Shown here is an 85-nucleotide RNA sequence from Gossypium harknessii, a member of the family "small nucleolar RNA snoR114". Rfam 15.1 lists 1,645 matches to the family in 183 species. It is annotated as a C/D-box small nucleolar RNA.
[Rfam]
RNA sequence: GAGCAAUGAAGAGAACAGAGCUCUUGUGAUGGUAGGGUCCAUCGCUCUCACCGAUUUAACGAUGAGAAACUGCGCAUCUAAGCUU
Numbered sequence: 001g002a003g004c005a006a007u008g009a010a011g012a013g014a015a016c017a018g019a020g021c022u023c024u025u026g027u028g029a030u031g032g033u034a035g036g037g038u039c040c041a042u043c044g045c046u047c048u049c050a051c052c053g054a055u056u057u058a059a060c061g062a063u064g065a066g067a068a069a070c071u072g073c074g075c076a077u078c079u080a081a082g083c084u085u
Base pairs, nucleotide, nucleotide: 001085002084003083004082
Dot-bracket structure: ((((.............................................................................))))
Its family is annotated with nucleolus and RNA processing in the Gene Ontology. On this family, see Chen and Wu, Nucleic Acids Res 2009: "Mining small RNA sequencing data: a new approach to identify small nucleolar RNAs in Arabidopsis". Taxonomically the source falls in Gossypium (Eukaryota, rosids, malvids, Malvaceae). A search with the family's covariance model found it, with a score of 66 bits.